U4atac minor spliceosomal RNA: a 131-nucleotide RNA from Trichonephila clavata. The family is grouped with related families in Rfam's "U4 clan". By type it is a spliceosomal small nuclear RNA. On this family, see Lorkovic et al., RNA 2005: "Evolutionary conservation of minor U12-type spliceosome between plants and humans".

RNA sequence: ACCGUCUUUGUCAAGGGUAGUAUCUGUUCAAUGAACGUUAAGUGAGAACAGGAUUGCUGACACCAUAUGACACUCAAAACUCGCACCGCCGUUCUAGGAACUAGAUCGGUUUGGGUGCAAUUUUUGGAACC
Numbered sequence: 001a002c003c004g005u006c007u008u009u010g011u012c013a014a015g016g017g018u019a020g021u022a023u024c025u026g027u028u029c030a031a032u033g034a035a036c037g038u039u040a041a042g043u044g045a046g047a048a049c050a051g052g053a054u055u056g057c058u059g060a061c062a063c064c065a066u067a068u069g070a071c072a073c074u075c076a077a078a079a080c081u082c083g084c085a086c087c088g089c090c091g092u093u094c095u096a097g098g099a100a101c102u103a104g105a106u107c108g109g110u111u112u113g114g115g116u117g118c119a120a121u122u123u124u125u126g127g128a129a130c131c
Stems, first nucleotide, its partner, number of pairs: 005019001007017003020057003023052007035043002083118005089109003093105005